[Rfam]
A member of the RNA family "Potassium channel RNA editing signal" from Poecilia formosa, 113 nucleotides long. Rfam's curators write: This family represents a group of sequences related to the human potassium channel Kv1.1 hairpin element which directs the efficient modification of an adenosine to inosine by an adenosine deaminase acting on RNA (ADAR). The ADAR modification causes an isoleucine/valine recoding event which lies in the ion-conducting pore of the potassium channel. It is thought that this editing event targets the process of fast inactivation and allows a more rapid recovery from inactivation at negative potentials. It scores 89 bits against the family's covariance model.

RNA sequence: GCAGGUACGGUGACAUGGUUCCUAACACCAUCGCAGGGAAGAUCUUCGGCUCCAUCUGCUCCCUGAGCGGCGUUCUGGUCAUCGCGCUGCCCGUCCCUGUCAUCGUGUCCAAC
Numbered sequence: 001g002c003a004g005g006u007a008c009g010g011u012g013a014c015a016u017g018g019u020u021c022c023u024a025a026c027a028c029c030a031u032c033g034c035a036g037g038g039a040a041g042a043u044c045u046u047c048g049g050c051u052c053c054a055u056c057u058g059c060u061c062c063c064u065g066a067g068c069g070g071c072g073u074u075c076u077g078g079u080c081a082u083c084g085c086g087c088u089g090c091c092c093g094u095c096c097c098u099g100u101c102a103u104c105g106u107g108u109c110c111a112a113c
Stems, first nucleotide, its partner, number of pairs: 001113001004110002006107005012101004017096002020093001036076004048062002
Dot-bracket structure: (..(((((((.((((.((.(...............((((........((...........))..........))))................).)).)))).))))).))..)

Lineage of the source: Eukaryota > Metazoa > Vertebrata > Acanthomorphata > Poecilia.